[Rfam]
RNA sequence: AAAUCGUGGAGUCCAGAAACCACUUAAAAAACGGGGCGUUACUGAAAAGCCUUACGAGUAAGAAUCAA
Dot-bracket structure: .....((((..........))))...........(((....[[.....))).........]]......
Numbered sequence: 001a002a003a004u005c006g007u008g009g010a011g012u013c014c015a016g017a018a019a020c021c022a023c024u025u026a027a028a029a030a031a032c033g034g035g036g037c038g039u040u041a042c043u044g045a046a047a048a049g050c051c052u053u054a055c056g057a058g059u060a061a062g063a064a065u066c067a068a
Stems, first nucleotide, its partner, number of pairs: 006023004035051003042062002